[Rfam]
U8 small nucleolar RNA: a 136-nucleotide RNA sequence from Callithrix jacchus.
The base pairs follow the family's consensus structure, which is taken from published work.
On this family, see Peculis et al., Gene 2001: "The U8 snoRNA gene family: identification and characterization of distinct, functional U8 genes in Xenopus".
By type it is a C/D-box small nucleolar RNA.

RNA sequence: UUAUCAGGUGGGAUAAUCUUUACCGGUUCCUCCUUUUGGAGGGUAGAUUCGAAUAUGAUGAUUGGAGUUGGUAUUGUACGUGAUUAACGUCUCUGCAUAAUCAGGACUUGCAACACCUUGAUCGCUCCUAUCUGAU
Numbered sequence: 001u002u003a004u005c006a007g008g009u010g011g012g013a014u015a016a017u018c019u020u021u022a023c024c025g026g027u028u029c030c031u032c033c034u035u036u037u038g039g040a041g042g043g044u045a046g047a048u049u050c051g052a053a054u055a056u057g058a059u060g061a062u063u064g065g066a067g068u069u070g071g072u073a074u075u076g077u078a079c080g081u082g083a084u085u086a087a088c089g090u091c092u093c094u095g096c097a098u099a100a101u102c103a104g105g106a107c108u109u110g111c112a113a114c115a116c117c118u119u120g121a122u123c124g125c126u127c128c129u130a131u132c133u134g135a136u
Base pairs, nucleotide, nucleotide: 024046026044028043029042030041031040032039033038076092078090079089080088081086098124100122101121102120103119104118105117